[Rfam]
RNA: MIR845_2 microRNA precursor family
RNA sequence: AAGAUCAUAAUAAAGAAUCCCUAGGGCCAUGGGAUAAACAAAAACUCUGCAAAACCAAGUUAGCAUAUCCUAAAAUGGUUCUAGCAUGAUUACUAACGUAUGGCUCUGAUACCAGUUGAUGGGAAAAACUC
Numbered sequence: 001a002a003g004a005u006c007a008u009a010a011u012a013a014a015g016a017a018u019c020c021c022u023a024g025g026g027c028c029a030u031g032g033g034a035u036a037a038a039c040a041a042a043a044a045c046u047c048u049g050c051a052a053a054a055c056c057a058a059g060u061u062a063g064c065a066u067a068u069c070c071u072a073a074a075a076u077g078g079u080u081c082u083a084g085c086a087u088g089a090u091u092a093c094u095a096a097c098g099u100a101u102g103g104c105u106c107u108g109a110u111a112c113c114a115g116u117u118g119a120u121g122g123g124a125a126a127a128a129c130u131c
Stems, first nucleotide, its partner, number of pairs: 010120002013117002022108010033097001048086002053080002056077002060073004